[Rfam]
RNA sequence: CCCAGCCUCCACGUGGCGUUACGUCACCCAACUCCCCCAGGGCAGGAAUGCAGCAAGGGUAAGUGGCCUCUUGCGGGUACGUGGAGGUUUUUCCA
Dot-bracket structure: ...(((((((((((..(((.(.(((((......(((.....(((....))).....)))...)))))...).))).)..))))))))))......
The record is a 95-nucleotide RNA from Bifidobacterium moraviense, which matches "Bacterial small signal recognition particle RNA" in Rfam. The family's consensus secondary structure is taken from published work. Lineage of the source: Bacteria > Bacillati > Actinomycetota > Bifidobacteriaceae > Bifidobacterium. By type it is a non-coding RNA gene. From the family's description: The signal recognition particle (SRP) is a universally conserved ribonucleoprotein involved in the co-translational targeting of proteins to membranes.